[Rfam]
The family of this 80-nucleotide RNA sequence from Suillus placidus is "tRNA".
Pairs were carried over by alignment from the consensus structure, which is taken from published work.
A search with the family's covariance model found it, with a score of 56 bits.
Gene Ontology term of the family: triplet codon-amino acid adaptor activity.
The organism belongs to Suillus, within Eukaryota.
Rfam classes the family as a transfer RNA.
RNA sequence: GGCUAGAUGGCCGAGCGGUCUAAGGCGCUGGAAUCAGGAUCCAGUCCGAAAGGGCGUGAGUUCGAAUCUCACUCUAGUCA
Numbered sequence: 001g002g003c004u005a006g007a008u009g010g011c012c013g014a015g016c017g018g019u020c021u022a023a024g025g026c027g028c029u030g031g032a033a034u035c036a037g038g039a040u041c042c043a044g045u046c047c048g049a050a051a052g053g054g055c056g057u058g059a060g061u062u063c064g065a066a067u068c069u070c071a072c073u074c075u076a077g078u079c080a
Stems, first nucleotide, its partner, number of pairs: 001079007010026003028044005056072005